[Rfam]
RNA sequence: ACGAUGUUCCGCUGCCGGAUAAGACGGCAAGAGCAUUCG
Numbered sequence: 001a002c003g004a005u006g007u008u009c010c011g012c013u014g015c016c017g018g019a020u021a022a023g024a025c026g027g028c029a030a031g032a033g034c035a036u037u038c039g
Stems, first nucleotide, its partner, number of pairs: 003037007013029005

The record is a 39-nucleotide RNA sequence from Salibacterium qingdaonense, which matches "Ribosomal protein L19 leader" in Rfam. The base pairs follow the family's consensus structure, which was predicted with CMfinder. Gene Ontology term of the family: regulation of gene expression. For this family Rfam cites "Diverse mechanisms for regulating ribosomal protein synthesis in Escherichia coli" (Zengel and Lindahl, Prog Nucleic Acid Res Mol Biol, 1994). Taxonomically the source falls in Salibacterium (Bacteria, Bacillati, Bacilli, Caryophanales). It is annotated as a cis-regulatory leader. Rfam's curators write: This family is a putative r-protein leader autoregulatory structure found in B. subtilis and other low-GC Gram-positive bacteria. It is located in the 5' untranslated regions of mRNAs encoding ribosomal protein L19 (rplS).